[Rfam]
RNA sequence: ACGACCUUACUUGAACAGGAUCUGUUCUAUAGGCUCGUACCUCUGUUUCCUUGAUUUCUCAAGAGACAGGCCUUAAACCCUGGUUGAUGAACCAUGACCGUGCGGCUAGAGCGUGAUUGACGGCUACGAUCGUCCUUGGAUGCAUCCGGUGCUGUAGAGGAUCGUUACUCGGCUCGGUUCUACCUUGUCGGGGUGGUCGCACGGCGGUCUGACAGGUU
Numbered sequence: 001a002c003g004a005c006c007u008u009a010c011u012u013g014a015a016c017a018g019g020a021u022c023u024g025u026u027c028u029a030u031a032g033g034c035u036c037g038u039a040c041c042u043c044u045g046u047u048u049c050c051u052u053g054a055u056u057u058c059u060c061a062a063g064a065g066a067c068a069g070g071c072c073u074u075a076a077a078c079c080c081u082g083g084u085u086g087a088u089g090a091a092c093c094a095u096g097a098c099c100g101u102g103c104g105g106c107u108a109g110a111g112c113g114u115g116a117u118u119g120a121c122g123g124c125u126a127c128g129a130u131c132g133u134c135c136u137u138g139g140a141u142g143c144a145u146c147c148g149g150u151g152c153u154g155u156a157g158a159g160g161a162u163c164g165u166u167a168c169u170c171g172g173c174u175c176g177g178u179u180c181u182a183c184c185u186u187g188u189c190g191g192g193g194u195g196g197u198c199g200c201a202c203g204g205c206g207g208u209c210u211g212a213c214a215g216g217u218u
Stems, first nucleotide, its partner, number of pairs: 001038002003035001005033003013027006043069004048064002051061001053059001079216004098204011110166004120155005127148001128146003131142004168192006176184002
RNA: Plant small nucleolar RNA U3